Notes: Shown here is a 182-nucleotide sequence from Rhizobacter koreensis, a member of the family "6S / SsrS RNA".
[Rfam]
RNA sequence: CGGUCCGUCGCGCUCGCGUGAGCUUUAUAUUUCCUUGAACCGAUGCUCGAAAGAGCAAGGGCUUGGAACAUCGCCUGGUUGGUGUGAUCGUCUCGCGUCAGAUGAACCCGAAGCCAGGCUGACCUCGCCCACCUGAACUCCCUGGGUUCAGGAAUGCGGCUCACGGUCCCGCGGCGGACACC
Numbered sequence: 001c002g003g004u005c006c007g008u009c010g011c012g013c014u015c016g017c018g019u020g021a022g023c024u025u026u027a028u029a030u031u032u033c034c035u036u037g038a039a040c041c042g043a044u045g046c047u048c049g050a051a052a053g054a055g056c057a058a059g060g061g062c063u064u065g066g067a068a069c070a071u072c073g074c075c076u077g078g079u080u081g082g083u084g085u086g087a088u089c090g091u092c093u094c095g096c097g098u099c100a101g102a103u104g105a106a107c108c109c110g111a112a113g114c115c116a117g118g119c120u121g122a123c124c125u126c127g128c129c130c131a132c133c134u135g136a137a138c139u140c141c142c143u144g145g146g147u148u149c150a151g152g153a154a155u156g157c158g159g160c161u162c163a164c165g166g167u168c169c170c171g172c173g174g175c176g177g178a179c180a181c182c
Stems, first nucleotide, its partner, number of pairs: 003179009012169001015166001017165003031154004036150006059130003065124002070120001073119007084107002089104005
A search with the family's covariance model found it, with a score of 56 bits. From the family's description: E. coli 6S RNA was the first non coding RNA to be sequenced, but its function was unknown until recently. A reference for the family is Wassarman and Storz (2000), "6S RNA regulates E. coli RNA polymerase activity", Cell.